The record is a 126-nucleotide sequence from Aquarana catesbeiana, which matches "Small nucleolar RNA SNORA68" in Rfam. Taxonomically the source falls in Aquarana (Eukaryota, Craniata, Gnathostomata, Ranidae). The family's consensus secondary structure was predicted with PFOLD. Rfam's curators write: U68 is a member of the H/ACA class of small nucleolar RNAs (snoRNAs) which act as guides in the the modification of uridines to pseudouridines.
Nucleotides: 126
Base pairs, nucleotide, nucleotide: 003056005054006053007052009050020042021041022040023039024038025037026036027035028034067119068118069117072114079104080103081102082101083100084099088095089094
Number, partner (000 for none) and nucleotide at each position: 001000g002000a003056u004000a005054c006053a007052c008000a009050c010000a011000a012000a013000a014000c015000c016000u017000a018000a019000a020042g021041a022040u023039u024038a025037u026036u027035a028034c029000u030000c031000u032000g033000u034028g035027u036026a037025a038024u039023a040022a041021u042020c043000u044000u045000g046000u047000c048000u049000g050009g051000g052007g053006u054005g055000c056003a057000c058000a059000c060000a061000g062000c063000a064000g065000c066000a067119g068118g069117a070000c071000a072114u073000g074000g075000u076000c077000a078000c079104c080103u081102u082101u083100c084099a085000g086000a087000a088095g089094c090000u091000g092000g093000u094089g095088c096000c097000c098000a099084u100083g101082a102081a103080a104079g105000u106000g107000a108000a109000a110000c111000u112000g113000a114072a115000a116000a117069u118068u119067c120000u121000a122000c123000a124000c125000u126000u